[Rfam]
RNA: mir-196 microRNA precursor family
RNA sequence: UUAGGUAGUUUCAUGUUGUUGGGAUCAACUUUUAGCUCGGCAACAAGAAACUGCCCGAAUUACGUC
Numbered sequence: 001u002u003a004g005g006u007a008g009u010u011u012c013a014u015g016u017u018g019u020u021g022g023g024a025u026c027a028a029c030u031u032u033u034a035g036c037u038c039g040g041c042a043a044c045a046a047g048a049a050a051c052u053g054c055c056c057g058a059a060u061u062a063c064g065u066c
Stems, first nucleotide, its partner, number of pairs: 001058002004055008014045010